[Rfam]
RNA sequence: GGCCUACUGUUUGCAAACCCCUCCACACAGGCAAUCAACGCCGAUUGCCCACUUCACGACAAAGGCGCCGU
Dot-bracket structure: .............................(((((((......)))))))......................
Numbered sequence: 001g002g003c004c005u006a007c008u009g010u011u012u013g014c015a016a017a018c019c020c021c022u023c024c025a026c027a028c029a030g031g032c033a034a035u036c037a038a039c040g041c042c043g044a045u046u047g048c049c050c051a052c053u054u055c056a057c058g059a060c061a062a063a064g065g066c067g068c069c070g071u
Stems, first nucleotide, its partner, number of pairs: 030049007
This 71-nucleotide RNA sequence belongs to the Rfam family "narK RNA". The family's consensus secondary structure is taken from published work.